Rfam assigns this 82-nucleotide RNA sequence from Mytilus coruscus to the family "mir-315 microRNA precursor family". The source organism's lineage runs through Eukaryota, Opisthokonta, Eumetazoa, Bivalvia and Mytilus.
[Rfam]
RNA sequence: UUCUUCUCACCUUUUGAUUGUUGCUCAGAAAGCCAGUGAAUUUAUAGUGGCUAUCGAGCAGCAAUCAAAGAUUGAAGGAGGG
Numbered sequence: 001u002u003c004u005u006c007u008c009a010c011c012u013u014u015u016g017a018u019u020g021u022u023g024c025u026c027a028g029a030a031a032g033c034c035a036g037u038g039a040a041u042u043u044a045u046a047g048u049g050g051c052u053a054u055c056g057a058g059c060a061g062c063a064a065u066c067a068a069a070g071a072u073u074g075a076a077g078g079a080g081g082g
Stems, first nucleotide, its partner, number of pairs: 001082007012070007020062007028055002031052004
Gene Ontology terms of the family: miRNA-mediated post-transcriptional gene silencing and RISC complex.